[Rfam]
The record is a 72-nucleotide RNA sequence from bacteria symbiont BFo2 of Frankliniella occidentalis, which matches "int-alpA RNA" in Rfam. NCBI's taxonomy places the organism under Bacteria, Pseudomonadati, Pseudomonadota, Gammaproteobacteria, Enterobacterales. The family's RNA type in Rfam is small RNA. The family's consensus secondary structure is taken from published work.
RNA sequence: AUUGAGUCUAGCCUGACGGGGCGAAAAGCGGCAAACCUUACCGCCUGACUCAAUCCCUUUUAAGUUUUAACG
Numbered sequence: 001a002u003u004g005a006g007u008c009u010a011g012c013c014u015g016a017c018g019g020g021g022c023g024a025a026a027a028g029c030g031g032c033a034a035a036c037c038u039u040a041c042c043g044c045c046u047g048a049c050u051c052a053a054u055c056c057c058u059u060u061u062a063a064g065u066u067u068u069a070a071c072g
Stems, first nucleotide, its partner, number of pairs: 001054008011022004028044004038069001